[Rfam]
RNA: t44 RNA
Organism: Chelonobacter oris
RNA sequence: UAUGAUUAAUUCAGACUUCACACACAUAUCACUUACUGUCAGUCGGGGUGCCAAACGGUCGAUGCGACAGGAUAUGUGGAGGCUAAAC
Number, nucleotide and partner (000 for none) at each position: 001u000002a000003u000004g000005a000006u000007u000008a000009a000010u000011u000012c000013a000014g000015a000016c000017u000018u000019c000020a000021c000022a000023c078024a077025c076026a075027u074028a073029u072030c071031a000032c000033u000034u000035a000036c000037u069038g068039u067040c066041a000042g063043u062044c061045g060046g000047g000048g000049u000050g059051c058052c057053a000054a000055a000056c000057g052058g051059u050060c045061g044062a043063u042064g000065c000066g040067a039068c038069a037070g000071g030072a029073u028074a027075u026076g025077u024078g023079g000080a000081g000082g000083c000084u000085a000086a000087a000088c000